[Rfam]
RNA sequence: UGUCAUAAAUUUGAGGUCAUAGCAGAAGUGAUUACAGAGCAGCCCUGUCAGAUUUCAAUGAAUCUGUGAAUUCUGCU
Numbered sequence: 001u002g003u004c005a006u007a008a009a010u011u012u013g014a015g016g017u018c019a020u021a022g023c024a025g026a027a028g029u030g031a032u033u034a035c036a037g038a039g040c041a042g043c044c045c046u047g048u049c050a051g052a053u054u055u056c057a058a059u060g061a062a063u064c065u066g067u068g069a070a071u072u073c074u075g076c077u
Stems, first nucleotide, its partner, number of pairs: 013045001015044003021077007028040002049066007